Rfam assigns this 75-nucleotide RNA sequence from Haemonchus placei to the family "mir-5928 microRNA precursor family". Its family is annotated with miRNA-mediated post-transcriptional gene silencing and RISC complex in the Gene Ontology. The family's consensus secondary structure was predicted with RNAalifold. It scores 86 bits against the family's covariance model.

[Rfam]
RNA sequence: GGCCCAAACUUGAAGUAAGGUAGAUUAGUAAGGUCAGCUGAUCCUACUAUUCUGCUCUACUUCGAAAUUGGGCCC
Numbered sequence: 001g002g003c004c005c006a007a008a009c010u011u012g013a014a015g016u017a018a019g020g021u022a023g024a025u026u027a028g029u030a031a032g033g034u035c036a037g038c039u040g041a042u043c044c045u046a047c048u049a050u051u052c053u054g055c056u057c058u059a060c061u062u063c064g065a066a067a068u069u070g071g072g073c074c075c
Base pairs, nucleotide, nucleotide: 001074002073003072004071005070006069007068011064012063013062014061015060016059017058019056020055021054022053023052026049027048028047029046030045032043033042034041035040